[Rfam]
The family of this 369-nucleotide RNA from Pelotomaculum schinkii is "Bacterial RNase P class A".
Ribonuclease P (RNase P) is a ubiquitous endoribonuclease, found in archaea, bacteria and eukarya as well as chloroplasts and mitochondria.
Rfam links the family to the GO terms dimeric ribonuclease P complex, tRNA processing and ribonuclease P activity.
Taxonomically the source falls in Pelotomaculum (Bacteria, Bacillati, Clostridia, Desulfotomaculaceae).
By type it is a ribozyme.
The family is grouped with related families in Rfam's "RNaseP clan".

RNA sequence: UGAGUAAAUCAGGUGGUCGCGGGCGCAAGGCCGAAAGGUGGCGCCUGAGGAAAGUCCGGGCUCCGCAGGGCAGGGUGCUGGGUAACUCCCAGUGGGGGCGACCCCAAGGAAAGUGCCACAGAAAUGCAGACCGCCCGCCGGAAGGUUUGACCUUCCGGUGUGAGGCAAGGAUGGAACGGUGCGGUAAGAGCGCACCAGCGGCCGGGCGACCGGCCGGCUAGGUAAACCCCACCUGGAGCAAGACCGAAUAGAGGAACAUAGGGACGGCCCGUCCCGUUCCCGGGUAAGGUCGCUUGAGGCGGCUGGAAACAGUCGUCCUAGAUAGAUGAUCACUCAAGACAGAACCCGGCUUAUCGAUUUACUCACACG
Numbered sequence: 001u002g003a004g005u006a007a008a009u010c011a012g013g014u015g016g017u018c019g020c021g022g023g024c025g026c027a028a029g030g031c032c033g034a035a036a037g038g039u040g041g042c043g044c045c046u047g048a049g050g051a052a053a054g055u056c057c058g059g060g061c062u063c064c065g066c067a068g069g070g071c072a073g074g075g076u077g078c079u080g081g082g083u084a085a086c087u088c089c090c091a092g093u094g095g096g097g098g099c100g101a102c103c104c105c106a107a108g109g110a111a112a113g114u115g116c117c118a119c120a121g122a123a124a125u126g127c128a129g130a131c132c133g134c135c136c137g138c139c140g141g142a143a144g145g146u147u148u149g150a151c152c153u154u155c156c157g158g159u160g161u162g163a164g165g166c167a168a169g170g171a172u173g174g175a176a177c178g179g180u181g182c183g184g185u186a187a188g189a190g191c192g193c194a195c196c197a198g199c200g201g202c203c204g205g206g207c208g209a210c211c212g213g214c215c216g217g218c219u220a221g222g223u224a225a226a227c228c229c230c231a232c233c234u235g236g237a238g239c240a241a242g243a244c245c246g247a248a249u250a251g252a253g254g255a256a257c258a259u260a261g262g263g264a265c266g267g268c269c270c271g272u273c274c275c276g277u278u279c280c281c282g283g284g285u286a287a288g289g290u291c292g293c294u295u296g297a298g299g300c301g302g303c304u305g306g307a308a309a310c311a312g313u314c315g316u317c318c319u320a321g322a323u324a325g326a327u328g329a330u331c332a333c334u335c336a337a338g339a340c341a342g343a344a345c346c347c348g349g350c351u352u353a354u355c356g357a358u359u360u361a362c363u364c365a366c367a368c369g
Base pairs, nucleotide, nucleotide: 001365002364003363004362005361006360007359008358009357010356011354012334013333014332015331016330017329018328020047021046022045023044024043025042026041028039052352053351054350056349057348058347059346060345061238062237063236064235068270069269070268071267073234074233075232076231077230078092079091080090081089082088093107094105095104096103097102108229109228113227114226115223116222117221131170132169133166134165135164136160137159138158139157140156141155142154143153144152145151146150178196179195180194181193182192183191198218199216200215201214202213203212204211205210242291243290244289245288253280254279255278256277257276261275262274263273264272265271298317299316300315301314302313303312304311305310